The record is an 83-nucleotide RNA, which matches "RT-18 RNA" in Rfam. The base pairs follow the family's consensus structure, which is taken from published work. By type it is a small RNA.

RNA sequence: CACCCCUUGGUGAAGAUAUGCUAUAAGGGCACGGUUUAGUACUCUCCGAAAGGAGCGCAGGAAACACCGUGAGGCAAAAGGAG
Numbered sequence: 001c002a003c004c005c006c007u008u009g010g011u012g013a014a015g016a017u018a019u020g021c022u023a024u025a026a027g028g029g030c031a032c033g034g035u036u037u038a039g040u041a042c043u044c045u046c047c048g049a050a051a052g053g054a055g056c057g058c059a060g061g062a063a064a065c066a067c068c069g070u071g072a073g074g075c076a077a078a079a080g081g082a083g
Stems, first nucleotide, its partner, number of pairs: 001012004019076004030071006042060002044055003